[Rfam]
RNA: Y RNA
Organism: Otolemur garnettii
RNA sequence: GGCUGGUCCAAGUAAGUGCUGAUUACAACUAAUUGAUCAUACUAGUUACGGAUUCCUUUGUUCCUUCUACACUCCCACAGUUUUACUUGACUAGGUUUUU
Number, nucleotide and partner (000 for none) at each position: 001g096002g000003c094004u093005g092006g091007u090008c089009c000010a088011a087012g000013u000014a084015a083016g078017u077018g076019c000020u000021g074022a000023u000024u000025a000026c000027a062028a061029c060030u000031a058032a057033u000034u000035g000036a000037u000038c000039a000040u000041a000042c000043u000044a000045g000046u000047u000048a000049c000050g000051g000052a000053u000054u000055c000056c000057u032058u031059u000060g029061u028062u027063c000064c000065u000066u000067c000068u000069a000070c000071a000072c000073u000074c021075c000076c018077a017078c016079a000080g000081u000082u000083u015084u014085a000086c000087u011088u010089g008090a007091c006092u005093a004094g003095g000096u001097u000098u000099u000100u000